[Rfam]
RNA sequence: AUUCUGGCUUUUUAUGGUGGUUAUACCGGAUAAUACCGCCCCGUUUGCCACCGGGAAUUCAGGAGAGUCCAUGUUU
Numbered sequence: 001a002u003u004c005u006g007g008c009u010u011u012u013u014a015u016g017g018u019g020g021u022u023a024u025a026c027c028g029g030a031u032a033a034u035a036c037c038g039c040c041c042c043g044u045u046u047g048c049c050a051c052c053g054g055g056a057a058u059u060c061a062g063g064a065g066a067g068u069c070c071a072u073g074u075u076u
Base pairs, nucleotide, nucleotide: 040055041054042053043052044050
Rfam assigns this 76-nucleotide RNA sequence from Pantoea alhagi to the family "PyrD leader". A reference for the family is Sorensen (1994), "Conformational heterogeneity in the Salmonella typhimurium pyrC and pyrD leader mRNAs produced in vivo", Nucleic Acids Res. The base pairs follow the family's consensus structure, which is taken from published work. The organism belongs to Pantoea, within Bacteria.